[Rfam]
RNA sequence: UUCUUAUCAAGAGAGGCGGAGGGAAAGGCCCGAUGAAGCCCAGCAACCGAUUUGUAAAGAACUGCAGCUUGGAUCGCUGCAUCUUUAGCAAAUGUCAUGGUGCUAAUUCCUUCAAGAUCGCGUAACGUGGCAACGCGCAGGGCGGUUUUGGUAGAUGAGAA
Numbered sequence: 001u002u003c004u005u006a007u008c009a010a011g012a013g014a015g016g017c018g019g020a021g022g023g024a025a026a027g028g029c030c031c032g033a034u035g036a037a038g039c040c041c042a043g044c045a046a047c048c049g050a051u052u053u054g055u056a057a058a059g060a061a062c063u064g065c066a067g068c069u070u071g072g073a074u075c076g077c078u079g080c081a082u083c084u085u086u087a088g089c090a091a092a093u094g095u096c097a098u099g100g101u102g103c104u105a106a107u108u109c110c111u112u113c114a115a116g117a118u119c120g121c122g123u124a125a126c127g128u129g130g131c132a133a134c135g136c137g138c139a140g141g142g143c144g145g146u147u148u149u150g151g152u153a154g155a156u157g158a159g160a161a
Stems, first nucleotide, its partner, number of pairs: 001161008013041001015040003021031003025112004042104004047100002049096003108153001113150009
About this RNA:
This 161-nucleotide RNA from Paenibacillus lentus belongs to the Rfam family "SAM riboswitch aptamer (S box leader)". The source organism's lineage runs through Bacteria, Bacillati, Bacillota, Bacilli and Paenibacillus.